[Rfam]
RNA sequence: UGAUAUUUCUCAAGAGAGAGUCAUAACAAUGGCCGCCGAAGAGGCAAACCGGAGAUAGAUUAUAUCGCAGGCGAAACUUUCAGGCAAAAGGACUGGGAGAUGUAC
Number, nucleotide and partner (000 for none) at each position: 001u000002g000003a000004u000005a000006u100007u099008u098009c097010u096011c095012a094013a000014g000015a000016g000017a000018g000019a000020g033021u032022c031023a030024u000025a000026a000027c000028a000029a000030u023031g022032g021033c020034c000035g085036c084037c083038g081039a080040a000041g000042a079043g078044g077045c000046a000047a000048a000049c071050c000051g000052g000053a000054g000055a000056u000057a000058g000059a000060u000061u000062a000063u000064a000065u000066c000067g000068c000069a000070g000071g049072c000073g000074a000075a000076a000077c044078u043079u042080u039081c038082a000083g037084g036085c035086a000087a000088a000089a000090g000091g000092a000093c000094u012095g011096g010097g009098a008099g007100a006101u000102g000103u000104a000105c000
RNA: Glycine riboswitch aptamer